Shown here is a 78-nucleotide RNA, a member of the family "pemK RNA".
[Rfam]
RNA sequence: AUAAUGAUACUUCAACUUAGUCCUAAGAAUCCUAUGGAGAGUUGCUCGCACAUUGUGGGAGAGGUUUAAAUCCUAUGA
Numbered sequence: 001a002u003a004a005u006g007a008u009a010c011u012u013c014a015a016c017u018u019a020g021u022c023c024u025a026a027g028a029a030u031c032c033u034a035u036g037g038a039g040a041g042u043u044g045c046u047c048g049c050a051c052a053u054u055g056u057g058g059g060a061g062a063g064g065u066u067u068a069a070a071u072c073c074u075a076u077g078a
Base pairs, nucleotide, nucleotide: 012075013044014043015042016041017040018039045061046060047059049057050056051055062074063073064072